[Rfam]
RNA sequence: AUUUUAAUAGAAUAUAAACCUUGUAUAAGUUCAGGAAUAGGGCCUGAACGUCUCUACCAAGCUACCGUAAACAGCUUGUCUACAAGGAAUGGAAACGUAAGA
Dot-bracket structure: ..................(((((((...(((((((.......)))))))........((((((.........))))))..)))))))...............

Background
Rfam assigns this 102-nucleotide RNA sequence from Virgibacillus sp. MSP4-1 to the family "Purine riboswitch aptamer". The organism belongs to Virgibacillus, within Bacteria. Pairs were carried over by alignment from the consensus structure, which is taken from published work. From the family's description: Riboswitches are metabolite binding domains within certain messenger RNAs that serve as precision sensors for their corresponding targets.